A member of the RNA family "Small nucleolar RNA SNORA79" from Megalops atlanticus, 143 nucleotides long.
Rfam 15.1 lists 944 matches to the family in 375 species.
It is annotated as an H/ACA-box small nucleolar RNA.
The match comes from Rfam's covariance-model search (99 bits).
Rfam's curators write: ACA65 (SNORA79) is a member of the H/ACA class of snoRNAs that guide the sites of modification of uridines to pseudouridines. This snoRNA was identified by computational screening and its expression in mouse experimentally verified by Northern blot and primer extension analysis.
Lineage of the source: Eukaryota > Actinopteri > Elopocephalai > Elopiformes > Megalops.
The family's consensus secondary structure was predicted with RNAalifold.
RNA sequence: CGACAACCGUUCCUCCUACUGCUCCGAGCCCUAGCACUUGGGAUUUUAGGUUGUCGCAGAUUAUAGCGGGUCUUCUUCACUCUGUGUUCACGAGGUAGCGGGGCUGCCACUUUGGACACUGGAUUUUGCGGGACCCAACACUG
Number, nucleotide and partner (000 for none) at each position: 001c056002g055003a054004c053005a052006a051007c050008c049009g000010u000011u000012c000013c000014u043015c042016c041017u040018a039019c000020u036021g035022c034023u033024c000025c000026g000027a000028g000029c000030c000031c000032u000033a023034g022035c021036a020037c000038u000039u018040g017041g016042g015043a014044u000045u000046u000047u000048a000049g008050g007051u006052u005053g004054u003055c002056g001057c000058a000059g000060a000061u000062u000063a000064u000065a000066g000067c000068g000069g135070g134071u133072c132073u131074u130075c000076u000077u000078c000079a000080c000081u122082c121083u000084g119085u118086g117087u116088u115089c114090a113091c000092g000093a000094g108095g107096u106097a105098g000099c000100g000101g000102g000103g000104c000105u097106g096107c095108c094109a000110c000111u000112u000113u090114g089115g088116a087117c086118a085119c084120u000121g082122g081123a000124u000125u000126u000127u000128g000129c000130g074131g073132g072133a071134c070135c069136c000137a000138a000139c000140a000141c000142u000143g000